[Rfam]
RNA: c-di-GMP-I riboswitch aptamer
RNA sequence: AGCAGAACAAGGCAAAGUCAUUGAAAGAUGGCGACGCAAAGCUAAAGGGGCUAAGGUGUAUGAUCCAAUUCACGAUGCCAGCCAGUUACCGAG
Numbered sequence: 001a002g003c004a005g006a007a008c009a010a011g012g013c014a015a016a017g018u019c020a021u022u023g024a025a026a027g028a029u030g031g032c033g034a035c036g037c038a039a040a041g042c043u044a045a046a047g048g049g050g051c052u053a054a055g056g057u058g059u060a061u062g063a064u065c066c067a068a069u070u071c072a073c074g075a076u077g078c079c080a081g082c083c084a085g086u087u088a089c090c091g092a093g
Base pairs, nucleotide, nucleotide: 012037013036017032018031019030020029021028022027040087041086042085043084047083048082049079050078051077056073057072058071